[Rfam]
RNA sequence: GCGGAUAGAAAUCCGCUGGGAUGUAACCGUUUGGUUGAACCAUAAA
Numbered sequence: 001g002c003g004g005a006u007a008g009a010a011a012u013c014c015g016c017u018g019g020g021a022u023g024u025a026a027c028c029g030u031u032u033g034g035u036u037g038a039a040c041c042a043u044a045a046a
Stems, first nucleotide, its partner, number of pairs: 001016005017042003025036004
Dot-bracket structure: (((((......)))))(((.....((((....))))...)))....

Rfam assigns this 46-nucleotide RNA to the family "eL15-Euryarchaeota ribosomal protein leader". Rfam's curators put it in the seed alignment.